[Rfam]
RNA: mir-1006 microRNA precursor family
Organism: Drosophila busckii
RNA sequence: UAACUUCCAGGUGAGUUAGAAAUUGAUUGCCUAAAUUGUUUUGGUAAUUUAAAUUCGAUUUCUAUUCAUAGGUGC
Numbered sequence: 001u002a003a004c005u006u007c008c009a010g011g012u013g014a015g016u017u018a019g020a021a022a023u024u025g026a027u028u029g030c031c032u033a034a035a036u037u038g039u040u041u042u043g044g045u046a047a048u049u050u051a052a053a054u055u056c057g058a059u060u061u062c063u064a065u066u067c068a069u070a071g072g073u074g075c
Stems, first nucleotide, its partner, number of pairs: 003073004011069006019062008032051008